[Rfam]
RNA sequence: GGUGAUAAACUUAUACUACAAUAACAGUUUGGACCUGGGGGCAGAACCCAGCACCUCCACCAUCAUUUUUCAUACUAAAUCUCACAGCAGCUGAGAUUAGUAUUUAUAUCAUAUGGGGGUGACAUAGCUUUCGACAGGCUACUAAAAAGUAUCUUUUACUCGGUUGAGAAACUGCCGAUUAGUGCUUCAAAACACUGAUACUCGUUCAAAACAAAAUAAACGCAAACGAUAACGUUGCUAAUGAUAAUUUCGAAUUUACUAGAAUGGCUGUAGCUGUCUAG
Numbered sequence: 001g002g003u004g005a006u007a008a009a010c011u012u013a014u015a016c017u018a019c020a021a022u023a024a025c026a027g028u029u030u031g032g033a034c035c036u037g038g039g040g041g042c043a044g045a046a047c048c049c050a051g052c053a054c055c056u057c058c059a060c061c062a063u064c065a066u067u068u069u070u071c072a073u074a075c076u077a078a079a080u081c082u083c084a085c086a087g088c089a090g091c092u093g094a095g096a097u098u099a100g101u102a103u104u105u106a107u108a109u110c111a112u113a114u115g116g117g118g119g120u121g122a123c124a125u126a127g128c129u130u131u132c133g134a135c136a137g138g139c140u141a142c143u144a145a146a147a148a149g150u151a152u153c154u155u156u157u158a159c160u161c162g163g164u165u166g167a168g169a170a171a172c173u174g175c176c177g178a179u180u181a182g183u184g185c186u187u188c189a190a191a192a193c194a195c196u197g198a199u200a201c202u203c204g205u206u207c208a209a210a211a212c213a214a215a216a217u218a219a220a221c222g223c224a225a226a227c228g229a230u231a232a233c234g235u236u237g238c239u240a241a242u243g244a245u246a247a248u249u250u251c252g253a254a255u256u257u258a259c260u261a262g263a264a265u266g267g268c269u270g271u272a273g274c275u276g277u278c279u280a281g
Base pairs, nucleotide, nucleotide: 001160002159003158004157005156014151015150016149017148026140027139028138029137030136031135035051036050037049038048039047052121053120054119055118056117057116058115161177162176163175164174
RNA: permuted transfer-messenger RNA